[Rfam]
Source information:
A member of the RNA family "Glutamine riboswitch aptamer (glnA leader)" from Halomicronema hongdechloris, 89 nucleotides long.

RNA sequence: AUCGUUCAUCCUACCUAAGGUCGCAUGUCAAGGUCGCAUGUCGAUGCUAAGGGGGACGGAAGUAGGGACUACUCCCGAAGGAACGCGCC
Numbered sequence: 001a002u003c004g005u006u007c008a009u010c011c012u013a014c015c016u017a018a019g020g021u022c023g024c025a026u027g028u029c030a031a032g033g034u035c036g037c038a039u040g041u042c043g044a045u046g047c048u049a050a051g052g053g054g055g056a057c058g059g060a061a062g063u064a065g066g067g068a069c070u071a072c073u074c075c076c077g078a079a080g081g082a083a084c085g086c087g088c089c
Stems, first nucleotide, its partner, number of pairs: 003085005009056004059086001065076003
Notes
A search with the family's covariance model found it, with a score of 48 bits. The source organism's lineage runs through Bacteria, Bacillati, Nodosilineaceae, Halomicronema and Halomicronema hongdechloris.